[Rfam]
RNA sequence: UGACCUCGGAUCAGGUAGGAAGACCCGCUGAACUUAAGCAUAUCAAUAAGCGGAGGAAAAGAAACCAACAGGGAUUGCCUCAGUAGCGGCGAGCGAAGCGGCAACAGCUCAGAUUUGAAAUCUGGCCCCCGCCGCGGGGGCCCGAGUUGUAAUCUGCAGAGGAAGCCUUCGGCGAGGCGGCGGCCUAAGUCCCCUGGAACGGGGCGCCACAGAGGGUGAGAGCCCCGUGAGGCCGCCCGCCGAGCCAUUGUAAGGCCCCUUCGACGAGUCGAGUAGUUUGGGAAUGCUGCUCAAAAUGGGAGGUAUACUCCUUCUAAAGCUAAAUACAGGCCGGAGACCGAUAGCGCACAAGUAGCGUGAGCGAAAGAUGAAAAGCACUUUGGAAAGAGAGUGAAACAGCACGUGAAACUGUUGAGGGGGAAG
Numbered sequence: 001u002g003a004c005c006u007c008g009g010a011u012c013a014g015g016u017a018g019g020a021a022g023a024c025c026c027g028c029u030g031a032a033c034u035u036a037a038g039c040a041u042a043u044c045a046a047u048a049a050g051c052g053g054a055g056g057a058a059a060a061g062a063a064a065c066c067a068a069c070a071g072g073g074a075u076u077g078c079c080u081c082a083g084u085a086g087c088g089g090c091g092a093g094c095g096a097a098g099c100g101g102c103a104a105c106a107g108c109u110c111a112g113a114u115u116u117g118a119a120a121u122c123u124g125g126c127c128c129c130c131g132c133c134g135c136g137g138g139g140g141c142c143c144g145a146g147u148u149g150u151a152a153u154c155u156g157c158a159g160a161g162g163a164a165g166c167c168u169u170c171g172g173c174g175a176g177g178c179g180g181c182g183g184c185c186u187a188a189g190u191c192c193c194c195u196g197g198a199a200c201g202g203g204g205c206g207c208c209a210c211a212g213a214g215g216g217u218g219a220g221a222g223c224c225c226c227g228u229g230a231g232g233c234c235g236c237c238c239g240c241c242g243a244g245c246c247a248u249u250g251u252a253a254g255g256c257c258c259c260u261u262c263g264a265c266g267a268g269u270c271g272a273g274u275a276g277u278u279u280g281g282g283a284a285u286g287c288u289g290c291u292c293a294a295a296a297u298g299g300g301a302g303g304u305a306u307a308c309u310c311c312u313u314c315u316a317a318a319g320c321u322a323a324a325u326a327c328a329g330g331c332c333g334g335a336g337a338c339c340g341a342u343a344g345c346g347c348a349c350a351a352g353u354a355g356c357g358u359g360a361g362c363g364a365a366a367g368a369u370g371a372a373a374a375g376c377a378c379u380u381u382g383g384a385a386a387g388a389g390a391g392u393g394a395a396a397c398a399g400c401a402c403g404u405g406a407a408a409c410u411g412u413u414g415a416g417g418g419g420g421a422a423g
Stems, first nucleotide, its partner, number of pairs: 024055001025053005035042002065072002076103004086094002106321004112154004118148002121145002124142006159262002161259002166255004171246003176241002179237007189205001191204004208212001215225002271292007298315005355362002378389004
Description:
The record is a 423-nucleotide part of an RNA from Brassica oleracea, which matches "Eukaryotic large subunit ribosomal RNA" in Rfam.